[Rfam]
RNA sequence: CUGCACCUGUGUGUUGUAUUCUCCUACUUUCUUGCCGUGCUAAUAGGAUAUAACACUGGUGCAAAAAGGAAAAGCUGCUCCUUUGAGCAGCAGCGGCCAGACAACCGUAGAGAUAGAUCCACAGAUGAAUGGCUAAUCUGCUACUUGUCUACUAAUUCUAUCUCACAUUU
Numbered sequence: 001c002u003g004c005a006c007c008u009g010u011g012u013g014u015u016g017u018a019u020u021c022u023c024c025u026a027c028u029u030u031c032u033u034g035c036c037g038u039g040c041u042a043a044u045a046g047g048a049u050a051u052a053a054c055a056c057u058g059g060u061g062c063a064a065a066a067a068g069g070a071a072a073a074g075c076u077g078c079u080c081c082u083u084u085g086a087g088c089a090g091c092a093g094c095g096g097c098c099a100g101a102c103a104a105c106c107g108u109a110g111a112g113a114u115a116g117a118u119c120c121a122c123a124g125a126u127g128a129a130u131g132g133c134u135a136a137u138c139u140g141c142u143a144c145u146u147g148u149c150u151a152c153u154a155a156u157u158c159u160a161u162c163u164c165a166c167a168u169u170u
Base pairs, nucleotide, nucleotide: 002063003062004061005060006059008055009054010053015052016051017050018049019048020047021046022045025042026041110164111163112162113161114160115159116158117157128146129145130143131142132141
RNA: small nucleolar RNA snoR143
Organism: Triticum aestivum